Rfam assigns this 134-nucleotide RNA sequence from Jaculus jaculus to the family "Small nucleolar RNA SNORA3/SNORA45 family".
By type it is an H/ACA-box small nucleolar RNA.
The members of this family belong to the H/ACA class of snoRNAs which are thought to guide the sites of modification of uridines to pseudouridines.
The organism belongs to Jaculus, within Eukaryota.
The base pairs follow the family's consensus structure, which was predicted with RNAalifold.

RNA sequence: GCCAAGACUGGAGUCACAUCCUGACAUAGCUUAGCCUUUGUCCCGGUGUGGUGGAGUCCUCAGACAAUCUGCUGGUCUUCAUUCACUGGCUGAGGCAGUCAGUGUCCCUGUUAGUGCCCAAGUCAGAAACAGUC
Number, nucleotide and partner (000 for none) at each position: 001g000002c000003c000004a000005a060006g059007a057008c056009u055010g000011g000012a052013g000014u000015c050016a049017c048018a047019u046020c045021c000022u000023g042024a041025c040026a039027u000028a000029g000030c000031u000032u000033a000034g000035c000036c000037u000038u000039u026040g025041u024042c023043c000044c000045g020046g019047u018048g017049u016050g015051g000052u012053g000054g000055a009056g008057u007058c000059c006060u005061c000062a000063g000064a000065c000066a000067a000068u000069c000070u000071g000072c126073u125074g124075g123076u122077c000078u120079u000080c000081a000082u000083u000084c116085a115086c114087u113088g112089g111090c000091u000092g108093a000094g106095g105096c104097a000098g000099u000100c000101a000102g000103u000104g096105u095106c094107c000108c092109u000110g000111u089112u088113a087114g086115u085116g084117c000118c000119c000120a078121a000122g076123u075124c074125a073126g072127a000128a000129a000130c000131a000132g000133u000134c000